RNA sequence: AGCAAAAUGACGAGUCUUGUUUCUGAAUAUGAUGUAGAACCCCAUAUCACACUGGUCUUCAAAGUUCUCUGAUUGCU
Numbered sequence: 001a002g003c004a005a006a007a008u009g010a011c012g013a014g015u016c017u018u019g020u021u022u023c024u025g026a027a028u029a030u031g032a033u034g035u036a037g038a039a040c041c042c043c044a045u046a047u048c049a050c051a052c053u054g055g056u057c058u059u060c061a062a063a064g065u066u067c068u069c070u071g072a073u074u075g076c077u
Stems, first nucleotide, its partner, number of pairs: 001077005
About this RNA: Small nucleolar RNA R160: a 77-nucleotide RNA sequence from Morella rubra. snoR160 is a C/D box small nucleolar RNA, which acts as a methylation guide for 25S ribosomal RNA in plants. snoR160 has been alternatively named snoZ270 in rice. Pairs were carried over by alignment from the consensus structure. Rfam classes the family as a C/D-box small nucleolar RNA. A reference for the family is Chen et al. (2003), "The high diversity of snoRNAs in plants: identification and comparative study of 120 snoRNA genes from Oryza sativa", Nucleic Acids Res.